Shown here is a 370-nucleotide RNA from Geomicrobium sp. JCM 19038, a member of the family "Bacterial RNase P class B".
RNA sequence: CUCUUCGGGCAAUCGCGCCGUUUCUUUAGAAUCGGUGAGGAAAGUCCAUGCUCACACAACCUUAACUGGAUGUAGUGUUCGUGCUUGACGAAACAAUAAGUCAAGGCAGCUUACUUGUAAGUUGACGGCGCUUGGAACACCUAAGUCAAUCGAUAUGGUGAACCAUCGUAACGUGCCACAGUGACGUAGCUUCUCGGAAACGAGAAGAGUGGAACGAGGUAAACCCCACGAGUGAGUAACCCAAAAUAUGGUAGGGGCACUUUUUCGGUGGAAACAUACGAAAGAGGCGAAUAUAUCGCAGAUAGAUGAUUGCCGUCGUCGUGUGAGGUCAACAGCCUUAGCACGUCGAUACAGAACAUGGCUUAUAGAA
Numbered sequence: 001c002u003c004u005u006c007g008g009g010c011a012a013u014c015g016c017g018c019c020g021u022u023u024c025u026u027u028a029g030a031a032u033c034g035g036u037g038a039g040g041a042a043a044g045u046c047c048a049u050g051c052u053c054a055c056a057c058a059a060c061c062u063u064a065a066c067u068g069g070a071u072g073u074a075g076u077g078u079u080c081g082u083g084c085u086u087g088a089c090g091a092a093a094c095a096a097u098a099a100g101u102c103a104a105g106g107c108a109g110c111u112u113a114c115u116u117g118u119a120a121g122u123u124g125a126c127g128g129c130g131c132u133u134g135g136a137a138c139a140c141c142u143a144a145g146u147c148a149a150u151c152g153a154u155a156u157g158g159u160g161a162a163c164c165a166u167c168g169u170a171a172c173g174u175g176c177c178a179c180a181g182u183g184a185c186g187u188a189g190c191u192u193c194u195c196g197g198a199a200a201c202g203a204g205a206a207g208a209g210u211g212g213a214a215c216g217a218g219g220u221a222a223a224c225c226c227c228a229c230g231a232g233u234g235a236g237u238a239a240c241c242c243a244a245a246a247u248a249u250g251g252u253a254g255g256g257g258c259a260c261u262u263u264u265u266c267g268g269u270g271g272a273a274a275c276a277u278a279c280g281a282a283a284g285a286g287g288c289g290a291a292u293a294u295a296u297c298g299c300a301g302a303u304a305g306a307u308g309a310u311u312g313c314c315g316u317c318g319u320c321g322u323g324u325g326a327g328g329u330c331a332a333c334a335g336c337c338u339u340a341g342c343a344c345g346u347c348g349a350u351a352c353a354g355a356a357c358a359u360g361g362c363u364u365a366u367a368g369a370a
Base pairs, nucleotide, nucleotide: 004370005369006368007366008314009313010312011311012310013309014308016037017036018035019034020033042364043363044362046361047360048359049358050357051236052235053234054233055232056073057072058071060069061068079231080230081229082228083227084105085104086103087102088101089100106126107124108123109122110121111120112119127226128225138160139159140158141157145154146153147152173224174223175220176219177218190207191206192205193204194203195202196201240256241255242254260286261285262284263283264282265281266280287299288298289297290296316349317348318347320345321344322343323342324341
Pairs were carried over by alignment from the consensus structure, which is taken from published work. It scores 294 bits against the family's covariance model. The organism belongs to Geomicrobium, within Bacteria.